[Rfam]
RNA: Eukaryotic large subunit ribosomal RNA, nucleotides 1994 to 2380
RNA sequence: UGAACUAAUGUAGGUAAGGAAGUCGGCAAAAUGGAUCCGUAACUUCGGGAAAAGGAUUGGCUCUGAGGUCCUGGAUGUGCCAGGCUUGGAUGGAUGCUCUGCCAACUGCCUCUCUGAGAUAUCGGCGUGUAGCUCUGCCUUCGGGUGGACUGAAAGUCGGCCUGGGUGUGUGGGCGGCGGAGCGGAUGUCCCGGCUUUUAUGCAAUCAUGUGUAGUGGCCAUCGCUAAAAGGACAACUCAGAACUGGCACUGACCAGGGAAGUUCGACUGUCUAAUUAAAACAAAGCAUCGCGAAGGCCCUCGCUGGGUGUUGACGCGAUGAACUUCCACUGUCCCUAUCUACUCUUCAGCGAAACCGCAGGCAAGGGAACGGACUUGCAUAUAUCA
Numbered sequence: 001u002g003a004a005c006u007a008a009u010g011u012a013g014g015u016a017a018g019g020a021a022g023u024c025g026g027c028a029a030a031a032u033g034g035a036u037c038c039g040u041a042a043c044u045u046c047g048g049g050a051a052a053a054g055g056a057u058u059g060g061c062u063c064u065g066a067g068g069u070c071c072u073g074g075a076u077g078u079g080c081c082a083g084g085c086u087u088g089g090a091u092g093g094a095u096g097c098u099c100u101g102c103c104a105a106c107u108g109c110c111u112c113u114c115u116g117a118g119a120u121a122u123c124g125g126c127g128u129g130u131a132g133c134u135c136u137g138c139c140u141u142c143g144g145g146u147g148g149a150c151u152g153a154a155a156g157u158c159g160g161c162c163u164g165g166g167u168g169u170g171u172g173g174g175c176g177g178c179g180g181a182g183c184g185g186a187u188g189u190c191c192c193g194g195c196u197u198u199u200a201u202g203c204a205a206u207c208a209u210g211u212g213u214a215g216u217g218g219c220c221a222u223c224g225c226u227a228a229a230a231g232g233a234c235a236a237c238u239c240a241g242a243a244c245u246g247g248c249a250c251u252g253a254c255c256a257g258g259g260a261a262g263u264u265c266g267a268c269u270g271u272c273u274a275a276u277u278a279a280a281a282c283a284a285a286g287c288a289u290c291g292c293g294a295a296g297g298c299c300c301u302c303g304c305u306g307g308g309u310g311u312u313g314a315c316g317c318g319a320u321g322a323a324c325u326u327c328c329a330c331u332g333u334c335c336c337u338a339u340c341u342a343c344u345c346u347u348c349a350g351c352g353a354a355a356c357c358g359c360a361g362g363c364a365a366g367g368g369a370a371c372g373g374a375c376u377u378g379c380a381u382a383u384a385u386c387a
Base pairs, nucleotide, nucleotide: 001349002348003347004346010343011342012341013340014339015338016337018335019334020333034058035057036056037055038054043048059245060244062242063241064240065239066238067237068234069233070232071231072230074223075222076221077220079219080218081217082216084195085194086193088191089190090189091188096183097182098181099180101178102177103176106173107172108171109170111168113166114165115164116163118161122160123159124158125157126156246250258328259327260326261325262324263323264322269283270282271281287321288320289319290318291317292316293315295311297309298308299307300306362379363378364377365376366375